Shown here is an 84-nucleotide RNA from Granulicella arctica, a member of the family "tRNA". By type it is a transfer RNA.
[Rfam]
RNA sequence: GCCCGGAUGGUGAAAUCGGCAGACACAGCGGACUUAAAAUCCGUCGCCCUUUAGGGAAUGGGGGUUCAAGUCCCCCUCCGGGCA
Numbered sequence: 001g002c003c004c005g006g007a008u009g010g011u012g013a014a015a016u017c018g019g020c021a022g023a024c025a026c027a028g029c030g031g032a033c034u035u036a037a038a039a040u041c042c043g044u045c046g047c048c049c050u051u052u053a054g055g056g057a058a059u060g061g062g063g064g065u066u067c068a069a070g071u072c073c074c075c076c077u078c079c080g081g082g083c084a
Stems, first nucleotide, its partner, number of pairs: 001083007010026003028044005060076005

Background
Gene Ontology term of the family: triplet codon-amino acid adaptor activity. Lineage of the source: Bacteria > Pseudomonadati > Acidobacteriota > Terriglobia > Granulicella.